[Rfam]
RNA sequence: AGAUUGUGAGGGAAUGAGGUUCUCCCGCGGCAAUGCCGGAAACGCUGAAACAGCUGAUGACUUCUGUAAAAUC
Numbered sequence: 001a002g003a004u005u006g007u008g009a010g011g012g013a014a015u016g017a018g019g020u021u022c023u024c025c026c027g028c029g030g031c032a033a034u035g036c037c038g039g040a041a042a043c044g045c046u047g048a049a050a051c052a053g054c055u056g057a058u059g060a061c062u063u064c065u066g067u068a069a070a071a072u073c
Stems, first nucleotide, its partner, number of pairs: 010026004016064006044054003